[Rfam]
Nucleotides: 139
Stems, first nucleotide, its partner, number of pairs: 002059003006055002014047006023039001026037001072132005079125004087117004092113003
Number, partner (000 for none) and nucleotide at each position: 001000a002059g003058g004057u005000c006055a007054u008000u009000u010000c011000a012000a013000a014047g015046a016045g017044g018043g019042c020000a021000g022000g023039u024000g025000g026037g027000g028000a029000u030000g031000u032000g033000a034000a035000a036000a037026c038000a039023a040000a041000a042019g043018c044017u045016c046015u047014c048000a049000c050000c051000u052000c053000u054007g055006u056000a057004a058003c059002u060000g061000a062000a063000g064000a065000c066000u067000g068000a069000a070000a071000u072132u073131c074130u075129c076128u077000a078000c079125a080124g081123g082122a083000g084000g085000c086000c087117a088116c089115g090114g091000u092113c093112a094111c095000u096000c097000a098000u099000g100000u101000g102000c103000u104000a105000u106000g107000u108000u109000g110000u111094g112093u113092g114090c115089u116088g117087u118000g119000u120000u121000u122082u123081c124080u125079u126000g127000a128076g129075g130074a131073g132072a133000g134000a135000g136000a137000a138000a139000a